[Rfam]
Mason-Pfizer monkey virus packaging signal: a 304-nucleotide RNA sequence from Nannospalax galili. Rfam links the family to the GO term viral genome packaging. It is annotated as a cis-regulatory element. On this family, see Mustafa et al., Virus Res 2004: "Mutational analysis of the predicted secondary RNA structure of the Mason-Pfizer monkey virus packaging signal". It scores 142 bits against the family's covariance model.
RNA sequence: UGGCGCCCAACGUGGGGCUUGGAUACUGAGGCAGCAGUGAGGGAGACUACGUGAAAAGGAACGAGAUCAACAAAUUUUGAGAUACAUCAGAGAUCAACAAAUUUUGAGAUACAUCAGAGCCGCUGUGAGAACCUGCCUUGGCUGAAACCGAAAGUAAGUGGAAAUGUCUGAUCGAGGGUCAAGAAUUGAGUCAGCAAUGAGCUUUAUGUUAAGCAGUUAAAAGAGGCUUUAAAAACACAGGGAGUAAAGGUUAAAACUACAGAUUUAUUUCAUUUCUUUGAUUUUGUAAAGGACACUUGUCCCU
Numbered sequence: 001u002g003g004c005g006c007c008c009a010a011c012g013u014g015g016g017g018c019u020u021g022g023a024u025a026c027u028g029a030g031g032c033a034g035c036a037g038u039g040a041g042g043g044a045g046a047c048u049a050c051g052u053g054a055a056a057a058g059g060a061a062c063g064a065g066a067u068c069a070a071c072a073a074a075u076u077u078u079g080a081g082a083u084a085c086a087u088c089a090g091a092g093a094u095c096a097a098c099a100a101a102u103u104u105u106g107a108g109a110u111a112c113a114u115c116a117g118a119g120c121c122g123c124u125g126u127g128a129g130a131a132c133c134u135g136c137c138u139u140g141g142c143u144g145a146a147a148c149c150g151a152a153a154g155u156a157a158g159u160g161g162a163a164a165u166g167u168c169u170g171a172u173c174g175a176g177g178g179u180c181a182a183g184a185a186u187u188g189a190g191u192c193a194g195c196a197a198u199g200a201g202c203u204u205u206a207u208g209u210u211a212a213g214c215a216g217u218u219a220a221a222a223g224a225g226g227c228u229u230u231a232a233a234a235a236c237a238c239a240g241g242g243a244g245u246a247a248a249g250g251u252u253a254a255a256a257c258u259a260c261a262g263a264u265u266u267a268u269u270u271c272a273u274u275u276c277u278u279u280g281a282u283u284u285u286g287u288a289a290a291g292g293a294c295a296c297u298u299g300u301c302c303c304u
Stems, first nucleotide, its partner, number of pairs: 006031002012026003036048003084155002087151002094146001095144002161180002167178003187231003190227003238280007248266005289304001291302004